[Rfam]
RNA sequence: CCUGUCCCUACAGGCAUUUCAGGUGUUUUGCUGUGUGUCACAUGUACAUCAGUAGGUGGCAGAGAGGAGAGACACUAUGUCUACACUCAGUGUUCUGACCUAUGAACAUUUGAAUGAUUAGUAGCCUAACGUU
Numbered sequence: 001c002c003u004g005u006c007c008c009u010a011c012a013g014g015c016a017u018u019u020c021a022g023g024u025g026u027u028u029u030g031c032u033g034u035g036u037g038u039c040a041c042a043u044g045u046a047c048a049u050c051a052g053u054a055g056g057u058g059g060c061a062g063a064g065a066g067g068a069g070a071g072a073c074a075c076u077a078u079g080u081c082u083a084c085a086c087u088c089a090g091u092g093u094u095c096u097g098a099c100c101u102a103u104g105a106a107c108a109u110u111u112g113a114a115u116g117a118u119u120a121g122u123a124g125c126c127u128a129a130c131g132u133u
Stems, first nucleotide, its partner, number of pairs: 002062005007056005013050002021045001024042003028037001069130001072127001075124004084116002087113004091108005
A member of the RNA family "Small nucleolar RNA SNORA17" from Mus spicilegus, 133 nucleotides long. snoRNA ACA 17 belongs to the H/ACA family of snoRNAs and is predicted to guide pseudouridylation of the 28S rRNA at positions U4659 and U4598. It shares the same host gene together with ACA43. NB This family has a high threshold value to exclude a large number of closely related sequences that do not appear to have conserved H and ACA boxes, and may be pseudogenes. The base pairs follow the family's consensus structure, which was predicted with RNAalifold. Rfam links the family to the GO terms RNA processing and nucleolus.